[Rfam]
RNA sequence: AUCACGCACCUUAGAGCCACCUCUGGAGGACGCUCCUGUGCUGGUGCUGUCUUGUCUCUGAGAGAUGCAGCUCCAGUCUGGUGUUCCUCGGCAGCUUCCUGGCUGUACAUUUGGAGGUGUUUGAGUUAUUGGUGUGUGAGAGCAAUCUACCUGCCCCCAGACCUACGGCUGUACUGGCAACCCAGUUUUACUGGUGGGACUCUACCAGGGCAGCCAGGCUGGGGCCCGGUCAAC
Numbered sequence: 001a002u003c004a005c006g007c008a009c010c011u012u013a014g015a016g017c018c019a020c021c022u023c024u025g026g027a028g029g030a031c032g033c034u035c036c037u038g039u040g041c042u043g044g045u046g047c048u049g050u051c052u053u054g055u056c057u058c059u060g061a062g063a064g065a066u067g068c069a070g071c072u073c074c075a076g077u078c079u080g081g082u083g084u085u086c087c088u089c090g091g092c093a094g095c096u097u098c099c100u101g102g103c104u105g106u107a108c109a110u111u112u113g114g115a116g117g118u119g120u121u122u123g124a125g126u127u128a129u130u131g132g133u134g135u136g137u138g139a140g141a142g143c144a145a146u147c148u149a150c151c152u153g154c155c156c157c158c159a160g161a162c163c164u165a166c167g168g169c170u171g172u173a174c175u176g177g178c179a180a181c182c183c184a185g186u187u188u189u190a191c192u193g194g195u196g197g198g199a200c201u202c203u204a205c206c207a208g209g210g211c212a213g214c215c216a217g218g219c220u221g222g223g224g225c226c227c228g229g230u231c232a233a234c
Stems, first nucleotide, its partner, number of pairs: 003136005010125005018119008026089004034083001036081002040077005047070004053064001055063003091106006151229003158222001160220001162218002170212003174208004179203001182198002